[Rfam]
RNA sequence: CGGGGCCAACGCAGACGCCCCGCCGCACCGCUGGCCGUUCGCGCCAUCCAAGCUCUGC
Numbered sequence: 001c002g003g004g005g006c007c008a009a010c011g012c013a014g015a016c017g018c019c020c021c022g023c024c025g026c027a028c029c030g031c032u033g034g035c036c037g038u039u040c041g042c043g044c045c046a047u048c049c050a051a052g053c054u055c056u057g058c
Stems, first nucleotide, its partner, number of pairs: 001022006011058005030048001032046003
Shown here is a 58-nucleotide RNA, a member of the family "chrB-b RNA". The sequence is in the family's curated seed alignment. The base pairs follow the family's consensus structure, which is taken from published work.